[Rfam]
The record is a 70-nucleotide sequence, which matches "mir-144 microRNA precursor family" in Rfam.

RNA sequence: GCAGGAUAUCAUCGUAUACUGUAAGUUGGCUAUGAGACACUACAGUAUAGAUGAUGUACUCCCCGGGCUG
Numbered sequence: 001g002c003a004g005g006a007u008a009u010c011a012u013c014g015u016a017u018a019c020u021g022u023a024a025g026u027u028g029g030c031u032a033u034g035a036g037a038c039a040c041u042a043c044a045g046u047a048u049a050g051a052u053g054a055u056g057u058a059c060u061c062c063c064c065g066g067g068c069u070g
Stems, first nucleotide, its partner, number of pairs: 001062001003060002006057008015049009025038003
The base pairs follow the family's consensus structure, which was predicted with RNAalifold.